[Rfam]
A member of the RNA family "MIR5269 microRNA precursor family" from Medicago truncatula, 79 nucleotides long.
The family's consensus secondary structure was predicted with RNAalifold.
The source organism's lineage runs through Eukaryota, Streptophytina, eudicotyledons, fabids and Medicago.

RNA sequence: UUGGUUUAAAUCAUUGUGAGUCUACACUUUGGAAAUAGAACCCACAAAAAGUGGUGGGACAUGCAUGGAUUCCAUCCAA
Numbered sequence: 001u002u003g004g005u006u007u008a009a010a011u012c013a014u015u016g017u018g019a020g021u022c023u024a025c026a027c028u029u030u031g032g033a034a035a036u037a038g039a040a041c042c043c044a045c046a047a048a049a050a051g052u053g054g055u056g057g058g059a060c061a062u063g064c065a066u067g068g069a070u071u072c073c074a075u076c077c078a079a
Stems, first nucleotide, its partner, number of pairs: 001079004006074001009071004015065004022057003025053006